[Rfam]
RNA sequence: UUUAUUGAAUCUCUCUCAAAUGCUUUUAUAGUAAUAGUGUUGGCUUGCCAACUACGACGAUAAACGAAUUUCGUAAUAACCAUUACGGACGUGGGGGCAGUACCCACCACCUCCACCAUUUACAACUUACGGGGGUGAAAUAGGAUCGACGGGUGACUAAAGGCUAUUCUUUCGUUCGGGAUUGUUCCACCGUAACGGGCUAAACUUUAAAUGCUGACGAAAGUUACGCACUUGCUGCAUAAUUAACUUAGGUUAAUUUUAGAAGCACGGUCUGGGGCACCGGGUAACAGAACGCCCCUAC
Numbered sequence: 001u002u003u004a005u006u007g008a009a010u011c012u013c014u015c016u017c018a019a020a021u022g023c024u025u026u027u028a029u030a031g032u033a034a035u036a037g038u039g040u041u042g043g044c045u046u047g048c049c050a051a052c053u054a055c056g057a058c059g060a061u062a063a064a065c066g067a068a069u070u071u072c073g074u075a076a077u078a079a080c081c082a083u084u085a086c087g088g089a090c091g092u093g094g095g096g097g098c099a100g101u102a103c104c105c106a107c108c109a110c111c112u113c114c115a116c117c118a119u120u121u122a123c124a125a126c127u128u129a130c131g132g133g134g135g136u137g138a139a140a141u142a143g144g145a146u147c148g149a150c151g152g153g154u155g156a157c158u159a160a161a162g163g164c165u166a167u168u169c170u171u172u173c174g175u176u177c178g179g180g181a182u183u184g185u186u187c188c189a190c191c192g193u194a195a196c197g198g199g200c201u202a203a204a205c206u207u208u209a210a211a212u213g214c215u216g217a218c219g220a221a222a223g224u225u226a227c228g229c230a231c232u233u234g235c236u237g238c239a240u241a242a243u244u245a246a247c248u249u250a251g252g253u254u255a256a257u258u259u260u261a262g263a264a265g266c267a268c269g270g271u272c273u274g275g276g277g278c279a280c281c282g283g284g285u286a287a288c289a290g291a292a293c294g295c296c297c298c299u300a301c
Base pairs, nucleotide, nucleotide: 039052040051041050042049043048056176057175058174059173060172066169067168068167069166072163081155082154083153086151087150091107092106093105094104095103108137109136110135111134112133113132114131177192178191179190182202184200186199187198188197268282269281270280271279274298275297276296277295278294

The family of this 301-nucleotide RNA sequence from Candidatus Pelagibacter communis is "Alphaproteobacteria transfer-messenger RNA". The base pairs follow the family's consensus structure, which is taken from published work. The family is grouped with related families in Rfam's "tRNA clan". A reference for the family is Mao et al. (2010), "Variations on the tmRNA gene", RNA Biol. By type it is a non-coding RNA gene. Rfam's curators write: Bacterial tmRNA, also known as 10Sa RNA or SsrA, is named for its dual tRNA and mRNA-like properties. Taxonomically the source falls in Candidatus Pelagibacter communis (Bacteria, Pseudomonadota, Candidatus Pelagibacteraceae, Candidatus Pelagibacter).